Makes More Granules Regulator RNA (mmgR): a 77-nucleotide sequence from Oricola thermophila. The family's RNA type in Rfam is small RNA. Rfam describes the family as follows. SuhB later renamed mmgR (makes more granules regulator) was a putative non-coding RNA found multiple times in the Agrobacterium tumefaciens genome and related alpha-proteobacteria. The match comes from Rfam's covariance-model search (61 bits). Lineage of the source: Bacteria > Pseudomonadati > Hyphomicrobiales > Ahrensiaceae > Oricola. Clan: suhB sRNA clan.
[Rfam]
RNA sequence: CUGCCACGCCCUCCUUGGGCGUUUCCUCCCUAGAUUUUGGCCGCAUCAACCUUGAUGCGGCUUUUUUUUUGCGACUG
Numbered sequence: 001c002u003g004c005c006a007c008g009c010c011c012u013c014c015u016u017g018g019g020c021g022u023u024u025c026c027u028c029c030c031u032a033g034a035u036u037u038u039g040g041c042c043g044c045a046u047c048a049a050c051c052u053u054g055a056u057g058c059g060g061c062u063u064u065u066u067u068u069u070u071g072c073g074a075c076u077g
Stems, first nucleotide, its partner, number of pairs: 008020004039062009